[Rfam]
RNA sequence: UUGACGGUGUACUCCCAGAUGCUCUGCGGGUCCAGGAGUGUCUCGGCGCCGAAGUGAUCCCCGUUGGCCAGUACGCCGAGCGUCGUCUGGUUGCCGUACUCGCCGGGGCCGAUCUGGCUGACUUUACCAUGUGCUACAAGGAAAGCCUGGUCCGACGAGUGUCCGAACUCGACGAUCACGUCGCCGGGCUCGUAGCUGCGCUGCUCGAACCGGUCCGCCAGCGCGGACAACACCGCGUCGUCCUCGUAUCCCCGCAGCAGCGGGAGUUCUCGCAGCUCGGCCGGAAUGACCCGGACGUCGCUGCCGGUGCUGACGAACGUCACCCGGCCGUCGCCGACGGUGUACGUGAGGCGCCGGUUGACCCGGUAGGCGCCGCCGGCCGCCUGCACCCAGGGCAGCACGCGCAGCAGCCAGCGCGAGGUGAUGCCCUGCAUCUGCGGGACGGACUUGGUCGUGGUCGCCAGGUUCCGCGCCGCCCCGGUGCUGAGGCUUUGCUGCGGCGCGUUGU
Number, nucleotide and partner (000 for none) at each position: 001u000002u000003g000004a000005c000006g390007g389008u388009g387010u386011a385012c000013u000014c382015c000016c000017a000018g328019a000020u000021g325022c000023u000024c000025u322026g321027c000028g000029g318030g000031u316032c315033c000034a000035g000036g000037a311038g310039u309040g308041u307042c306043u000044c000045g305046g304047c303048g302049c000050c300051g299052a298053a000054g233055u232056g000057a000058u229059c000060c000061c226062c225063g224064u223065u111066g110067g109068c108069c000070a000071g000072u000073a000074c000075g103076c000077c102078g101079a100080g099081c000082g097083u096084c000085g094086u093087c000088u000089g000090g000091u000092u000093g086094c085095c000096g083097u082098a000099c080100u079101c078102g077103c075104c000105g000106g000107g000108g068109c067110c066111g065112a000113u000114c000115u000116g000117g222118c221119u220120g219121a000122c217123u000124u000125u000126a000127c212128c000129a000130u209131g206132u000133g204134c203135u000136a000137c000138a000139a000140g197141g000142a000143a000144a000145g000146c000147c000148u000149g000150g191151u000152c000153c000154g189155a000156c187157g000158a000159g184160u178161g177162u000163c000164c174165g173166a000167a000168c000169u000170c000171g000172a000173c165174g164175a000176u000177c161178a160179c000180g000181u000182c000183g000184c159185c000186g000187g156188g000189c154190u000191c150192g000193u000194a000195g000196c000197u140198g000199c000200g000201c000202u000203g134204c133205u000206c131207g000208a000209a130210c000211c000212g127213g000214u000215c000216c000217g122218c000219c120220a119221g118222c117223g064224c063225g062226g061227a000228c000229a058230a000231c000232a055233c054234c000235g000236c294237g000238u000239c000240g290241u289242c288243c000244u286245c000246g000247u000248a000249u283250c000251c000252c280253c279254g278255c000256a277257g276258c275259a000260g271261c000262g269263g000264g000265a000266g000267u000268u000269c262270u000271c260272g000273c000274a000275g258276c257277u256278c254279g253280g252281c000282c000283g249284g000285a000286a244287u000288g242289a241290c240291c000292c000293g000294g236295a000296c000297g000298u052299c051300g050301c000302u048303g047304c046305c045306g042307g041308u040309g039310c038311u037312g000313a000314c000315g032316a031317a000318c029319g000320u000321c026322a025323c000324c000325c021326g000327g000328c018329c342330g341331u340332c339333g000334c000335c000336g000337a000338c000339g332340g331341u330342g329343u000344a000345c000346g000347u000348g000349a000350g000351g000352c378353g377354c000355c375356g374357g373358u000359u000360g000361a000362c370363c369364c000365g000366g000367u000368a000369g363370g362371c000372g000373c357374c356375g355376c000377c353378g352379g000380c000381c000382g014383c000384c000385u011386g010387c009388a008389c007390c006391c431392a430393g429394g428395g427396c426397a425398g000399c423400a422401c421402g000403c418404g417405c416406a000407g415408c000409a000410g000411c000412c000413a000414g000415c407416g405417c404418g403419a000420g000421g401422u400423g399424a000425u397426g396427c395428c394429c393430u392431g391432c000433a000434u000435c000436u000437g476438c475439g474440g473441g000442a000443c470444g469445g468446a467447c465448u464449u463450g462451g461452u460453c000454g000455u000456g000457g000458u000459c000460g452461c451462c450463a449464g448465g447466u000467u446468c445469c444470g443471c000472g000473c440474c439475g438476c437477c507478c000479c000480g000481g501482u500483g000484c499485u000486g000487a496488g495489g000490c000491u000492u000493u000494g000495c488496u487497g000498c000499g484500g482501c481502g000503c000504g000505u000506u000507g477508u000
RNA: Saccharopolyspora sRNA 350